[Rfam]
RNA sequence: GACCGACGGUGCGACGAAUACAAUACCCGCAAGGGAAAUAAGUCCGCCUGAAUGUAUUGCAGGUUUUGAGCCGUUGGUCGCCCUAUU
Numbered sequence: 001g002a003c004c005g006a007c008g009g010u011g012c013g014a015c016g017a018a019u020a021c022a023a024u025a026c027c028c029g030c031a032a033g034g035g036a037a038a039u040a041a042g043u044c045c046g047c048c049u050g051a052a053u054g055u056a057u058u059g060c061a062g063g064u065u066u067u068g069a070g071c072c073g074u075u076g077g078u079c080g081c082c083c084u085a086u087u
Stems, first nucleotide, its partner, number of pairs: 001079009013044003017039001026035003046064005
This 87-nucleotide RNA from Moraxella nonliquefaciens belongs to the Rfam family "sRNA-Xcc1".